About this RNA: Shown here is a 118-nucleotide RNA sequence from Corynebacterium meridianum, a member of the family "SAM (S-adenosyl methionine) riboswitch aptamer". Rfam 15.1 lists 2,360 matches to the family in 1,305 species. For this family Rfam cites "The aptamer core of SAM-IV riboswitches mimics the ligand-binding site of SAM-I riboswitches" (Weinberg et al., RNA, 2008). The organism belongs to Corynebacterium, within Bacteria.
RNA sequence: GAUCAAGAAGCUCGACGUACAAGACCCCCGGCUCGUCGACUGGCAACCGCGUAUCGCGCACGGUGCCCCCGGAGGAAGAUCCGCCACAGGACAAUUCCGUCCUGCGGAAGAACGCGAC
Numbered sequence: 001g002a003u004c005a006a007g008a009a010g011c012u013c014g015a016c017g018u019a020c021a022a023g024a025c026c027c028c029c030g031g032c033u034c035g036u037c038g039a040c041u042g043g044c045a046a047c048c049g050c051g052u053a054u055c056g057c058g059c060a061c062g063g064u065g066c067c068c069c070c071g072g073a074g075g076a077a078g079a080u081c082c083g084c085c086a087c088a089g090g091a092c093a094a095u096u097c098c099g100u101c102c103u104g105c106g107g108a109a110g111a112a113c114g115c116g117a118c
Base pairs, nucleotide, nucleotide: 001081002080003079004078009041012039013038014037015036016035022033023032042067043066044065047063048062049061051059052058084107085106087104088103089102090101091100092099